[Rfam]
Nucleotides: 105
Stems, first nucleotide, its partner, number of pairs: 009100007018090003021086002023083002
Number, partner (000 for none) and nucleotide at each position: 001000u002000g003000c004000c005000c006000c007000c008000c009100g010099g011098c012097a013096a014095g015094c016000c017000g018090g019089c020088a021086c022085g023083a024082c025000c026000a027000g028000c029000u030000c031000c032000u033000g034000c035000u036000g037000a038000a039000c040000u041000c042000c043000c044000c045000c046000a047000g048000g049000a050000u051000c052000g053000g054000a055000a056000g057000g058000u059000a060000g061000c062000a063000a064000g065000g066000g067000u068000a069000g070000g071000c072000g073000g074000u075000u076000g077000u078000a079000g080000c081000g082024g083023u084000g085022c086021g087000a088020u089019g090018u091000u092000c093000g094015g095014c096013u097012u098011g099010c100009u101000a102000u103000u104000u105000u
A member of the RNA family "Bacteroidales small SRP" from Ohtaekwangia koreensis, 105 nucleotides long. The family's consensus secondary structure is taken from published work. The match comes from Rfam's covariance-model search (75 bits). The family's RNA type in Rfam is non-coding RNA gene. Clan: SRP clan. Taxonomically the source falls in Ohtaekwangia (Bacteria, Pseudomonadati, Bacteroidota, Cytophagia).